[Rfam]
RNA sequence: AUCCAAGGUGAUUGGCUCUCCAAGGGCCCAACUAGCGUCACCUUCAUGAAAGAAGCAAAUUGGAAGAAAAUCAGGCAUACCUGGAGUCACUUGGGACAUAGGUGCUUAUUUUCUUUACUGUCCUUUGACCUUCACAGGU
Numbered sequence: 001a002u003c004c005a006a007g008g009u010g011a012u013u014g015g016c017u018c019u020c021c022a023a024g025g026g027c028c029c030a031a032c033u034a035g036c037g038u039c040a041c042c043u044u045c046a047u048g049a050a051a052g053a054a055g056c057a058a059a060u061u062g063g064a065a066g067a068a069a070a071u072c073a074g075g076c077a078u079a080c081c082u083g084g085a086g087u088c089a090c091u092u093g094g095g096a097c098a099u100a101g102g103u104g105c106u107u108a109u110u111u112u113c114u115u116u117a118c119u120g121u122c123c124u125u126u127g128a129c130c131u132u133c134a135c136a137g138g139u
Base pairs, nucleotide, nucleotide: 002064003063004062005061006060009057010056019049020048022043024041026039028037073131074130075129078127079126083123084122085121094111095110096109

Rfam assigns this 139-nucleotide RNA from Octodon degus to the family "Small nucleolar RNA SNORA67". It is annotated as an H/ACA-box small nucleolar RNA. Its family is annotated with nucleolus and RNA processing in the Gene Ontology. Rfam's curators write: U67 belongs to the H/ACA class of snoRNAs which are thought to guide the sites of modification of uridines to pseudouridines.